RNA sequence: CUGUUUUUCUACGGUAAUUUGGUUCAGUACGAGAGGAACCACCAAUUCGCAUCAUCGGUAUAGCCGCCGCCGGAAACGGCGAUGCGGCGAAGCUGCCAUGCGCCGGAUUAUAACUGAACGCCUCUAAGUUAGAAUCCAUGCCGGAAGGAAAGCCACCUACCGGCCCGGGGACGCCACGAGCAACGGUAGCACUGCCUGAGCCGCGAGCGACCACAAUUCACGGACCCGGGCCGACGAAUCCCUUGCAGACGACUUGAAUAAGGAACGGGGUAUUGUACGCGGCAGAGUGGCCUUGUUGCCACGAUCCGCUGAGAUUCAGCCUUGGUUCUGACGAUUUGU
Numbered sequence: 001c002u003g004u005u006u007u008u009c010u011a012c013g014g015u016a017a018u019u020u021g022g023u024u025c026a027g028u029a030c031g032a033g034a035g036g037a038a039c040c041a042c043c044a045a046u047u048c049g050c051a052u053c054a055u056c057g058g059u060a061u062a063g064c065c066g067c068c069g070c071c072g073g074a075a076a077c078g079g080c081g082a083u084g085c086g087g088c089g090a091a092g093c094u095g096c097c098a099u100g101c102g103c104c105g106g107a108u109u110a111u112a113a114c115u116g117a118a119c120g121c122c123u124c125u126a127a128g129u130u131a132g133a134a135u136c137c138a139u140g141c142c143g144g145a146a147g148g149a150a151a152g153c154c155a156c157c158u159a160c161c162g163g164c165c166c167g168g169g170g171a172c173g174c175c176a177c178g179a180g181c182a183a184c185g186g187u188a189g190c191a192c193u194g195c196c197u198g199a200g201c202c203g204c205g206a207g208c209g210a211c212c213a214c215a216a217u218u219c220a221c222g223g224a225c226c227c228g229g230g231c232c233g234a235c236g237a238a239u240c241c242c243u244u245g246c247a248g249a250c251g252a253c254u255u256g257a258a259u260a261a262g263g264a265a266c267g268g269g270g271u272a273u274u275g276u277a278c279g280c281g282g283c284a285g286a287g288u289g290g291c292c293u294u295g296u297u298g299c300c301a302c303g304a305u306c307c308g309c310u311g312a313g314a315u316u317c318a319g320c321c322u323u324g325g326u327u328c329u330g331a332c333g334a335u336u337u338g339u
Stems, first nucleotide, its partner, number of pairs: 002155002005152005012143004017047001019045005048102005056095003063088004068081005105137002111131005162232007236337005242256001245253001262329005268322003272315002279309004284305001287302005